Source information: Shown here is a 397-nucleotide part of an RNA from Fusarium napiforme, a member of the family "Ascomycota telomerase RNA". The match comes from Rfam's covariance-model search (356 bits). Rfam links the family to the GO terms telomere maintenance via telomerase, telomerase catalytic core complex and telomerase activity. A reference for the family is Qi et al. (2013), "The common ancestral core of vertebrate and fungal telomerase RNAs", Nucleic Acids Res.

RNA sequence: AAUCAUACAGAAGGAGCUCUCUCGUCAGUGUCGGUGGGUUUUCAGACUGCGUUCUGCUAUGGCAACAUUUUGGUGGAGUCGUGUUUGCGAAGGUAUUGGAUCAUUUAUGGAAUUGUCAGCUCACGAAACAGUCUUCACCUUUGCAAUGACCGUUGUUGCAGGAGGAUACUUGCGGUUGGUGUUGGAAGCAUCACCGGGACCCAUCUCGAGUUGGAGUCAAAGUUUCGUACUUGUCUGGUGCUGUGAAAGACCCUUCUGCCAAGUUGAAUUCACGACUCUGGCCGCACUGUUGAGGCUGGGUUGGAUUGUUGGAUCUAGGACAGGCCUUGUUGGGUAGGGUAGUCCUGGCUGUUCUCUCGCCUGAAAAUGGUGUGGAGGACAGCCCCCCGCGGUGAGG
Numbered sequence: 001a002a003u004c005a006u007a008c009a010g011a012a013g014g015a016g017c018u019c020u021c022u023c024g025u026c027a028g029u030g031u032c033g034g035u036g037g038g039u040u041u042u043c044a045g046a047c048u049g050c051g052u053u054c055u056g057c058u059a060u061g062g063c064a065a066c067a068u069u070u071u072g073g074u075g076g077a078g079u080c081g082u083g084u085u086u087g088c089g090a091a092g093g094u095a096u097u098g099g100a101u102c103a104u105u106u107a108u109g110g111a112a113u114u115g116u117c118a119g120c121u122c123a124c125g126a127a128a129c130a131g132u133c134u135u136c137a138c139c140u141u142u143g144c145a146a147u148g149a150c151c152g153u154u155g156u157u158g159c160a161g162g163a164g165g166a167u168a169c170u171u172g173c174g175g176u177u178g179g180u181g182u183u184g185g186a187a188g189c190a191u192c193a194c195c196g197g198g199a200c201c202c203a204u205c206u207c208g209a210g211u212u213g214g215a216g217u218c219a220a221a222g223u224u225u226c227g228u229a230c231u232u233g234u235c236u237g238g239u240g241c242u243g244u245g246a247a248a249g250a251c252c253c254u255u256c257u258g259c260c261a262a263g264u265u266g267a268a269u270u271c272a273c274g275a276c277u278c279u280g281g282c283c284g285c286a287c288u289g290u291u292g293a294g295g296c297u298g299g300g301u302u303g304g305a306u307u308g309u310u311g312g313a314u315c316u317a318g319g320a321c322a323g324g325c326c327u328u329g330u331u332g333g334g335u336a337g338g339g340u341a342g343u344c345c346u347g348g349c350u351g352u353u354c355u356c357u358c359g360c361c362u363g364a365a366a367a368u369g370g371u372g373u374g375g376a377g378g379a380c381a382g383c384c385c386c387c388c389g390c391g392g393u394g395a396g397g
Stems, first nucleotide, its partner, number of pairs: 198218003201214003220232004